Description
Rfam assigns this 96-nucleotide sequence from Crassaminicella thermophila to the family "pan motif". The source organism's lineage runs through Bacteria, Bacillota, Clostridia, Clostridiaceae and Crassaminicella. The match comes from Rfam's covariance-model search (45 bits). The family's RNA type in Rfam is cis-regulatory element.
RNA sequence: UGGUUGACAUCGAAAGAGUCAAACCCUUAUGUGUUCUUUUAAAUUUUUAUAAUAUUGAAUAGACUUUGCACUGAUCCUUUGGACAGGGACUAAAAA
Number, nucleotide and partner (000 for none) at each position: 001u000002g025003g024004u022005u021006g020007a019008c018009a000010u017011c016012g000013a000014a000015a000016g011017a010018g008019u007020c006021a005022a004023a000024c003025c002026c000027u000028u000029a000030u000031g000032u000033g000034u000035u000036c000037u000038u000039u000040u000041a000042a000043a000044u000045u000046u000047u000048u000049a000050u000051a000052a000053u000054a000055u000056u000057g000058a000059a000060u000061a000062g000063a000064c000065u000066u092067u000068g090069c088070a000071c086072u085073g084074a000075u083076c082077c081078u000079u000080u000081g077082g076083a075084c073085a072086g071087g000088g069089a000090c068091u000092a066093a000094a000095a000096a000